[Rfam]
Nucleotides: 087
Base pairs, nucleotide, nucleotide: 001087002086003085004084005083006082
Number, partner (000 for none) and nucleotide at each position: 001087u002086c003085u004084g005083g006082c007000a008000g009000u010000g011000a012000u013000g014000c015000c016000a017000c018000a019000c020000u021000u022000g023000c024000c025000c026000u027000c028000a029000c030000u031000g032000a033000g034000a035000a036000c037000u038000c039000a040000g041000u042000u043000c044000a045000a046000u047000a048000a049000u050000g051000a052000g053000c054000c055000u056000c057000u058000c059000u060000c061000u062000c063000c064000u065000g066000u067000g068000c069000u070000g071000g072000g073000a074000g075000c076000a077000g078000c079000u080000g081000a082006g083005c084004c085003a086002g087001a
A member of the RNA family "Small nucleolar RNA SNORD103/SNORD85" from Alaudala cheleensis, 87 nucleotides long. The literature on the family includes a 2003 paper in Nucleic Acids Res by Vitali et al., "Identification of 13 novel human modification guide RNAs". The organism belongs to Alaudala, within Eukaryota. It scores 69 bits against the family's covariance model.